[Rfam]
RNA sequence: ACUUACACACGGCCUAAUCUCGGUCCCUGCGCGGGACCGAGAACGGAGGAACCAAUCAAUUGGGGUUAAUCUUGCGCUUUGGCGCGAGAGGGAUGAGGAACUGACUUCUCUGCCAUCCUACCCGUCAGCUAACUUCGUCGGCUUAUGCAGGGAAGGUCA
Numbered sequence: 001a002c003u004u005a006c007a008c009a010c011g012g013c014c015u016a017a018u019c020u021c022g023g024u025c026c027c028u029g030c031g032c033g034g035g036a037c038c039g040a041g042a043a044c045g046g047a048g049g050a051a052c053c054a055a056u057c058a059a060u061u062g063g064g065g066u067u068a069a070u071c072u073u074g075c076g077c078u079u080u081g082g083c084g085c086g087a088g089a090g091g092g093a094u095g096a097g098g099a100a101c102u103g104a105c106u107u108c109u110c111u112g113c114c115a116u117c118c119u120a121c122c123c124g125u126c127a128g129c130u131a132a133c134u135u136c137g138u139c140g141g142c143u144u145a146u147g148c149a150g151g152g153a154a155g156g157u158c159a
Stems, first nucleotide, its partner, number of pairs: 011143004018042010043138006053062002063123003071088004091118004